[Rfam]
RNA sequence: UGUGCUGUAUGGUAUCUGCACCCAGCAGUAUCUUCCUGAUGGGGUGUUCAAAAAGCAGUGCUACCAUGUUUCAGCAGAUGGCAACAUUGGCUUUUAUGUUGGUGUGCUGGUUAAACUUGCUAUUUCUGUUGAAACAAGU
Numbered sequence: 001u002g003u004g005c006u007g008u009a010u011g012g013u014a015u016c017u018g019c020a021c022c023c024a025g026c027a028g029u030a031u032c033u034u035c036c037u038g039a040u041g042g043g044g045u046g047u048u049c050a051a052a053a054a055g056c057a058g059u060g061c062u063a064c065c066a067u068g069u070u071u072c073a074g075c076a077g078a079u080g081g082c083a084a085c086a087u088u089g090g091c092u093u094u095u096a097u098g099u100u101g102g103u104g105u106g107c108u109g110g111u112u113a114a115a116c117u118u119g120c121u122a123u124u125u126c127u128g129u130u131g132a133a134a135c136a137a138g139u
Stems, first nucleotide, its partner, number of pairs: 002061006015054001017052001018047006024040001026038003064128001068124001070122001072119003080108004

The record is a 139-nucleotide sequence from Ceuthmochares aereus, which matches "Small nucleolar RNA SNORA8" in Rfam. Rfam describes the family as follows. ACA8 is a member of the H/ACA class of snoRNA that guide the sites of modification of uridines to pseudouridines. It scores 77 bits against the family's covariance model. Its Rfam clan is "SNORA8 clan". Rfam links the family to the GO terms RNA processing and nucleolus. Lineage of the source: Eukaryota > Metazoa > Amniota > Sauropsida > Ceuthmochares. It is annotated as an H/ACA-box small nucleolar RNA.